[Rfam]
RNA sequence: GCUUUUCCCCCCAGGCUUGUUGGUGUAUACUACAGAGAAGCCUCCAAGACCCAGGGGGACAGGC
Numbered sequence: 001g002c003u004u005u006u007c008c009c010c011c012c013a014g015g016c017u018u019g020u021u022g023g024u025g026u027a028u029a030c031u032a033c034a035g036a037g038a039a040g041c042c043u044c045c046a047a048g049a050c051c052c053a054g055g056g057g058g059a060c061a062g063g064c
Stems, first nucleotide, its partner, number of pairs: 002062002007058004014051002018046002022042003025033002
Background
The family of this 64-nucleotide sequence from Gadus morhua is "MAT2A 3'UTR stem loop A". The source organism's lineage runs through Eukaryota, Actinopterygii, Clupeocephala, Gadoidei and Gadus.